[Rfam]
RNA sequence: GUUUCAAGUGAUUAUGAAAACUUUGAUAUUUAAUAUCGCACUGAGGAAGUAUAUGCAGGAACAAAUUGUUAUUUAGGAAUUCUUCGUUUAUGAUCAAAC
Number, nucleotide and partner (000 for none) at each position: 001g099002u098003u097004u096005c000006a000007a000008g000009u000010g000011a000012u000013u000014a000015u000016g000017a000018a000019a000020a000021c000022u000023u000024u000025g000026a000027u000028a000029u000030u000031u000032a000033a000034u000035a000036u000037c000038g000039c000040a000041c000042u000043g000044a000045g000046g000047a000048a000049g000050u000051a000052u000053a000054u000055g000056c000057a000058g000059g000060a000061a000062c000063a000064a000065a000066u000067u000068g000069u000070u000071a000072u000073u000074u000075a000076g000077g000078a000079a000080u000081u000082c000083u000084u000085c000086g000087u000088u000089u000090a000091u000092g000093a000094u000095c000096a004097a003098a002099c001
RNA: Small nucleolar RNA snR57
Organism: Huiozyma naganishii